The family of this 102-nucleotide RNA sequence from Corchorus capsularis is "MIR2275 microRNA precursor family". The source organism's lineage runs through Eukaryota, Embryophyta, Mesangiospermae, Pentapetalae and Corchorus. The match comes from Rfam's covariance-model search (63 bits).
RNA sequence: AUGUUGUAUGUGAGAAUUGGAGAAAACCAUACAAAAAUUUAUGCCCAAACGUACGGCUCUUUGAAAAUUGUAUGGUUUUCUCCAAUAUCUCAUCUCCAACCU
Numbered sequence: 001a002u003g004u005u006g007u008a009u010g011u012g013a014g015a016a017u018u019g020g021a022g023a024a025a026a027c028c029a030u031a032c033a034a035a036a037a038u039u040u041a042u043g044c045c046c047a048a049a050c051g052u053a054c055g056g057c058u059c060u061u062u063g064a065a066a067a068u069u070g071u072a073u074g075g076u077u078u079u080c081u082c083c084a085a086u087a088u089c090u091c092a093u094c095u096c097c098a099a100c101c102u
Stems, first nucleotide, its partner, number of pairs: 004099003008095001011092004016086006023079008032070002